GAIT element: a 71-nucleotide RNA sequence from Myotis brandtii. The family has 8 seed sequences and 121 matches in Rfam 15.1. The organism belongs to Myotis, within Eukaryota. This family represents a cis-acting element in the 3'-UTR of the ceruloplasmin (Cp) gene called gamma interferon inhibitor of translation (GAIT). The GAIT element is involved in selective translational silencing of the Cp transcript. Ceruloplasmin (Cp) is a multifunctional, copper-containing glycoprotein produced by the liver and secreted into the plasma. As an acute-phase protein, its plasma concentration can double during multiple inflammatory conditions. Plasma Cp has been reported to be an independent risk factor for cardiovascular disease, including atherosclerosis, carotid restenosis after endarterectomy, and myocardial infarction. Translational silencing of Cp, and possibly other transcripts, mediated by the GAIT element may contribute to the resolution of the local inflammatory response following cytokine activation of macrophages. The match comes from Rfam's covariance-model search (59 bits). The family's consensus secondary structure is taken from published work.
[Rfam]
RNA sequence: GUAUUGAAAGUGUUGAAUAGAAUGUUUACUUAGGAAUGUCUAUAAACAUUAAAGGAAGACUGAAAACACAC
Number, nucleotide and partner (000 for none) at each position: 001g069002u068003a000004u066005u000006g000007a000008a000009a061010g060011u059012g000013u000014u000015g000016a000017a000018u000019a000020g000021a050022a049023u048024g047025u046026u045027u000028a000029c000030u000031u000032a000033g041034g040035a000036a000037u000038g000039u000040c034041u033042a000043u000044a000045a026046a025047c024048a023049u022050u021051a000052a000053a000054g000055g000056a000057a000058g000059a011060c010061u009062g000063a000064a000065a000066a004067c000068a002069c001070a000071c000
A reference for the family is Sampath et al. (2003), "Transcript-selective translational silencing by gamma interferon is directed by a novel structural element in the ceruloplasmin mRNA 3' untranslated region", Mol Cell Biol. Its family is annotated with negative regulation of translation in the Gene Ontology.